[Rfam]
RNA sequence: AUGCGAAUAUUCUCGCUGUCCUGAUGUUUCCGUGAUCAGGGGAGGCUAGACAUUCGCUAGAUUAAGACUAUGCAUUGUGUCCUCCAGGACUAGAUUUUUGCUCUAGUACUGGCUUUGUAAAUGCGAGUGACAGGU
Dot-bracket structure: ..(((..........((.(((((((.........))))))).))..........))).........(((..((..........((((.(((((.........))))).))))..........)).))).......
This 135-nucleotide sequence from Nyctiprogne leucopyga belongs to the Rfam family "Small nucleolar RNA SNORA72". Gene Ontology terms of the family: nucleolus and RNA processing. U72 is a member of the H/ACA class of snoRNAs. The snoRNA gene is located in intron 4 of the ribosomal L30 protein gene in human, mouse and chicken. The organism belongs to Nyctiprogne, within Eukaryota.